[Rfam]
RNA sequence: UUCGUGCUCCGGGGGUCGGUGAAAUUCCGAACCGGCGGUAUAGUCCGCGACCCGCGCGAUCCGAACGGCCAGCCCGUCUCGGAAGACCGCGGCCGAACCGGUGUGAUUCCGGUACCGACAGUACAGUCUGGAUGAAGGUGCACGAG
Numbered sequence: 001u002u003c004g005u006g007c008u009c010c011g012g013g014g015g016u017c018g019g020u021g022a023a024a025u026u027c028c029g030a031a032c033c034g035g036c037g038g039u040a041u042a043g044u045c046c047g048c049g050a051c052c053c054g055c056g057c058g059a060u061c062c063g064a065a066c067g068g069c070c071a072g073c074c075c076g077u078c079u080c081g082g083a084a085g086a087c088c089g090c091g092g093c094c095g096a097a098c099c100g101g102u103g104u105g106a107u108u109c110c111g112g113u114a115c116c117g118a119c120a121g122u123a124c125a126g127u128c129u130g131g132a133u134g135a136a137g138g139u140g141c142a143c144g145a146g
Stems, first nucleotide, its partner, number of pairs: 003144005009138002017029003031127002033117002035048004043115002052092005097113005119130003
Background
The record is a 146-nucleotide RNA from Rothia santali, which matches "FMN riboswitch aptamer (RFN element)" in Rfam. The RFN element is a highly conserved domain that is found frequently in the 5'-untranslated regions of prokaryotic mRNAs that encode for flavin mononucleotide (FMN) biosynthesis and transport proteins.